[Rfam]
tRNA: an 82-nucleotide RNA sequence from Hymenochirus boettgeri. It scores 46 bits against the family's covariance model.
RNA sequence: GUCAGGAUGGCCUAGCGGUCUAAGGCGCUGCGUUCAGGUCGAAUCUCCACUGGAGGCGUGGGUUCGAAUCCCACUUCUGACA
Numbered sequence: 001g002u003c004a005g006g007a008u009g010g011c012c013u014a015g016c017g018g019u020c021u022a023a024g025g026c027g028c029u030g031c032g033u034u035c036a037g038g039u040c041g042a043a044u045c046u047c048c049a050c051u052g053g054a055g056g057c058g059u060g061g062g063u064u065c066g067a068a069u070c071c072c073a074c075u076u077c078u079g080a081c082a
Stems, first nucleotide, its partner, number of pairs: 001081007010026004028053003058074005